[Rfam]
Annotation
The record is an 81-nucleotide sequence from Loxodonta africana, which matches "mir-872 microRNA precursor family" in Rfam. For this family Rfam cites "MicroRNA transcriptome in the newborn mouse ovaries determined by massive parallel sequencing" (Ahn et al., Mol Hum Reprod, 2010).
RNA sequence: UACUUGUUAGAAGGUUACGUAUUAACUCAGGACUUUGUUAUUUCUUGCCUGAACUAUUUCAGUAGCUUCCUAACUGGUCUC
Numbered sequence: 001u002a003c004u005u006g007u008u009a010g011a012a013g014g015u016u017a018c019g020u021a022u023u024a025a026c027u028c029a030g031g032a033c034u035u036u037g038u039u040a041u042u043u044c045u046u047g048c049c050u051g052a053a054c055u056a057u058u059u060c061a062g063u064a065g066c067u068u069c070c071u072a073a074c075u076g077g078u079c080u081c
Stems, first nucleotide, its partner, number of pairs: 002078003006074005012068007023056002027052005
The base pairs follow the family's consensus structure, which was predicted with RNAalifold. Rfam links the family to the GO terms RISC complex and miRNA-mediated post-transcriptional gene silencing. The match comes from Rfam's covariance-model search (78 bits).